[Rfam]
RNA sequence: GCGCAUCGUGGCAAUGGAUUCUGCCAGGCCGCUCCGGCCGAACCGCUCGCGAUCGCGCGCUGAUGAUUCCUACCGGGUG
Numbered sequence: 001g002c003g004c005a006u007c008g009u010g011g012c013a014a015u016g017g018a019u020u021c022u023g024c025c026a027g028g029c030c031g032c033u034c035c036g037g038c039c040g041a042a043c044c045g046c047u048c049g050c051g052a053u054c055g056c057g058c059g060c061u062g063a064u065g066a067u068u069c070c071u072a073c074c075g076g077g078u079g
Stems, first nucleotide, its partner, number of pairs: 010025004016070003020066002045060002048057003

Overview:
This 79-nucleotide sequence from Hephaestia caeni belongs to the Rfam family "Fluoride riboswitch aptamer (crcB RNA motif)". Its family is annotated with response to fluoride and positive regulation of gene expression in the Gene Ontology.